[Rfam]
RNA sequence: GCUGGUGCAUACGAUAAUGCA
Numbered sequence: 001g002c003u004g005g006u007g008c009a010u011a012c013g014a015u016a017a018u019g020c021a
Stems, first nucleotide, its partner, number of pairs: 003011001006021005